RNA: UnaL2 LINE 3' element
RNA sequence: CCUCAUUUAUCCUGUAAGUCGCUCUGGAUAAGAGCGUCUGCUAAAUGUAAAAUG
Numbered sequence: 001c002c003u004c005a006u007u008u009a010u011c012c013u014g015u016a017a018g019u020c021g022c023u024c025u026g027g028a029u030a031a032g033a034g035c036g037u038c039u040g041c042u043a044a045a046u047g048u049a050a051a052a053u054g
Stems, first nucleotide, its partner, number of pairs: 013043001014041003020036006